This 132-nucleotide sequence from Rhinopomastus cyanomelas belongs to the Rfam family "Small nucleolar RNA SNORA55".
[Rfam]
RNA sequence: GCAUCUUCACUUUUCCACUCCUUGCAACACAGUGCAGGACUGGAGAUACAGGAUGCAAGAGGAAAGCAGAGGAAAUCCAGACAAACUCCCUUUCACCACAGUGGGAUGUGUCUCUACACCUUUGCAACACUU
Numbered sequence: 001g002c003a004u005c006u007u008c009a010c011u012u013u014u015c016c017a018c019u020c021c022u023u024g025c026a027a028c029a030c031a032g033u034g035c036a037g038g039a040c041u042g043g044a045g046a047u048a049c050a051g052g053a054u055g056c057a058a059g060a061g062g063a064a065a066g067c068a069g070a071g072g073a074a075a076u077c078c079a080g081a082c083a084a085a086c087u088c089c090c091u092u093u094c095a096c097c098a099c100a101g102u103g104g105g106a107u108g109u110g111u112c113u114c115u116a117c118a119c120c121u122u123u124g125c126a127a128c129a130c131u132u
Stems, first nucleotide, its partner, number of pairs: 001056005012046006020038002066125006079113005085107001093104003